Notes: The record is a 103-nucleotide RNA from Sorghum bicolor, which matches "Small nucleolar RNA Z157/R69/R10" in Rfam. Rfam links the family to the GO terms RNA processing and nucleolus. The family has 10 seed sequences and 836 matches in Rfam 15.1. It scores 85 bits against the family's covariance model. Taxonomically the source falls in Sorghum (Eukaryota, Viridiplantae, Tracheophyta, Liliopsida).

RNA sequence: UUUGGAGUAAUGAUGAACAACUGUGUUUUGGACUAGAGUUUCUGAUGCUGCUACUUUGUUGGUGGUAGUUGAAGACUAAACCCUUGGCUGUCUGAACUCAAAU
Numbered sequence: 001u002u003u004g005g006a007g008u009a010a011u012g013a014u015g016a017a018c019a020a021c022u023g024u025g026u027u028u029u030g031g032a033c034u035a036g037a038g039u040u041u042c043u044g045a046u047g048c049u050g051c052u053a054c055u056u057u058g059u060u061g062g063u064g065g066u067a068g069u070u071g072a073a074g075a076c077u078a079a080a081c082c083c084u085u086g087g088c089u090g091u092c093u094g095a096a097c098u099c100a101a102a103u
Stems, first nucleotide, its partner, number of pairs: 002102002005099004039074004046067008